[Rfam]
RNA sequence: CGCCCGGCUCCACCGAGACCUUCGUACGGCAGGAGCGGGGGACCCAGGUAAGUCGCCGGGCCGGGCGUCUUCGGACACACCGGUACGGCUCGGGGUGAAGUCGCGUCCUUCAGGUGCGCGGCCGGGCAGCUCCCGCCCGAACCCGACAGCUCACCUCGCAGGCGACGGAGAGGAACCUC
Numbered sequence: 001c002g003c004c005c006g007g008c009u010c011c012a013c014c015g016a017g018a019c020c021u022u023c024g025u026a027c028g029g030c031a032g033g034a035g036c037g038g039g040g041g042a043c044c045c046a047g048g049u050a051a052g053u054c055g056c057c058g059g060g061c062c063g064g065g066c067g068u069c070u071u072c073g074g075a076c077a078c079a080c081c082g083g084u085a086c087g088g089c090u091c092g093g094g095g096u097g098a099a100g101u102c103g104c105g106u107c108c109u110u111c112a113g114g115u116g117c118g119c120g121g122c123c124g125g126g127c128a129g130c131u132c133c134c135g136c137c138c139g140a141a142c143c144c145g146a147c148a149g150c151u152c153a154c155c156u157c158g159c160a161g162g163c164g165a166c167g168g169a170g171a172g173g174a175a176c177c178u179c
Base pairs, nucleotide, nucleotide: 001164002163003162004161009034010033011032035159036158037157038156039155040154045092093144094143095142101121102120103119104118105117106116124138125137126136127135
Shown here is a 179-nucleotide sequence, a member of the family "c-di-AMP riboswitch aptamer (ydaO/yuaA leader)". The match comes from Rfam's covariance-model search (53 bits). Rfam 15.1 lists 7,607 matches to the family in 2,262 species.